The family of this 96-nucleotide sequence from Ensete ventricosum is "MIR535 microRNA precursor family". On this family, see Zeng et al., Nucleic Acids Res 2010: "Conservation and divergence of microRNAs and their functions in Euphorbiaceous plants". Rfam links the family to the GO terms miRNA-mediated post-transcriptional gene silencing and RISC complex. Taxonomically the source falls in Ensete (Eukaryota, Streptophytina, Embryophyta, Spermatophyta).

RNA sequence: GGUUUUGGUUGACGACGAGAGAGAGCACGCUGGUCCGCACUUAUGCAGGGGGACAUGAAUGCAUACUUGCGUGCUUUCUAUCGUUGUCAAUCAUUG
Numbered sequence: 001g002g003u004u005u006u007g008g009u010u011g012a013c014g015a016c017g018a019g020a021g022a023g024a025g026c027a028c029g030c031u032g033g034u035c036c037g038c039a040c041u042u043a044u045g046c047a048g049g050g051g052g053a054c055a056u057g058a059a060u061g062c063a064u065a066c067u068u069g070c071g072u073g074c075u076u077u078c079u080a081u082c083g084u085u086g087u088c089a090a091u092c093a094u095u096g
Stems, first nucleotide, its partner, number of pairs: 010089005016083002020079002023076001025074006032067003